[Rfam]
RNA sequence: GGAUGUGAAAUUGACUCUAGUAGGGAGUCCGUUUAAUACGACUCCCUAAUCGAGUCAGGUUGACUUCUUU
Numbered sequence: 001g002g003a004u005g006u007g008a009a010a011u012u013g014a015c016u017c018u019a020g021u022a023g024g025g026a027g028u029c030c031g032u033u034u035a036a037u038a039c040g041a042c043u044c045c046c047u048a049a050u051c052g053a054g055u056c057a058g059g060u061u062g063a064c065u066u067c068u069u070u
Base pairs, nucleotide, nucleotide: 011058012057013056014055015054016053017052021048022047023046024045025044026043027042028041029040
Rfam assigns this 70-nucleotide RNA sequence from Vanessa tameamea to the family "mir-929 microRNA precursor family". The family has 18 seed sequences and 147 matches in Rfam 15.1. On this family, see Weaver et al., Genome Biol 2007: "Computational and transcriptional evidence for microRNAs in the honey bee genome".